[Rfam]
RNA sequence: GGUCAUGAGUGUCAGCGACAAGCCCUGGCUCGCUGGCCGGCAACCCUCGCGCCGCGGUGGGGUGCCCCAGGUGACGACCGGACCGGAGACAUCUCGGUAAGCGCGAAGG
Numbered sequence: 001g002g003u004c005a006u007g008a009g010u011g012u013c014a015g016c017g018a019c020a021a022g023c024c025c026u027g028g029c030u031c032g033c034u035g036g037c038c039g040g041c042a043a044c045c046c047u048c049g050c051g052c053c054g055c056g057g058u059g060g061g062g063u064g065c066c067c068c069a070g071g072u073g074a075c076g077a078c079c080g081g082a083c084c085g086g087a088g089a090c091a092u093c094u095c096g097g098u099a100a101g102c103g104c105g106a107a108g109g
Base pairs, nucleotide, nucleotide: 001079002078003077004076009038011037012036013035014034015033016032021030022029039066040065041064044062045061046060048057082098083097084096085095086094